[Rfam]
RNA sequence: UGAAGGUACAUUAAUACAUCUCAUAUAAUCAUGGGGAUAUGGCCCAAAAGUUUCUACCUGAUGACCGUAAAUCAUCGGACUAUGAGAGAAGCAUCUGACUAA
Numbered sequence: 001u002g003a004a005g006g007u008a009c010a011u012u013a014a015u016a017c018a019u020c021u022c023a024u025a026u027a028a029u030c031a032u033g034g035g036g037a038u039a040u041g042g043c044c045c046a047a048a049a050g051u052u053u054c055u056a057c058c059u060g061a062u063g064a065c066c067g068u069a070a071a072u073c074a075u076c077g078g079a080c081u082a083u084g085a086g087a088g089a090a091g092c093a094u095c096u097g098a099c100u101a102a
Stems, first nucleotide, its partner, number of pairs: 019087007029049001032046004058078007

Purine riboswitch aptamer: a 102-nucleotide RNA from Peribacillus muralis. Pairs were carried over by alignment from the consensus structure, which is taken from published work.